The family of this 85-nucleotide RNA from Xenopus laevis is "mir-301 microRNA precursor family". For this family Rfam cites "Embryonic stem cell-specific MicroRNAs" (Houbaviy et al., Dev Cell, 2003). The family has 17 seed sequences and 1,415 matches in Rfam 15.1. The base pairs follow the family's consensus structure, which was predicted with WAR. The organism belongs to Xenopus, within Eukaryota.

RNA sequence: UUGUGUGAGUUGCUCUGACAGUGUUGCACUACUGUGAUCUCAAAUGAAGCAGUGCAAUAGUAUUGUCAAAGCAUUUCAUUCCAGC
Number, nucleotide and partner (000 for none) at each position: 001u000002u000003g081004u000005g000006u000007g077008a076009g075010u000011u073012g072013c071014u070015c000016u068017g067018a066019c065020a000021g000022u000023g058024u057025u056026g055027c054028a053029c052030u051031a000032c000033u000034g041035u000036g000037a000038u000039c000040u000041c034042a000043a000044a000045u000046g000047a000048a000049g000050c000051a030052g029053u028054g027055c026056a025057a024058u023059a000060g000061u000062a000063u000064u000065g019066u018067c017068a016069a000070a014071g013072c012073a011074u000075u009076u008077c007078a000079u000080u000081c003082c000083a000084g000085c000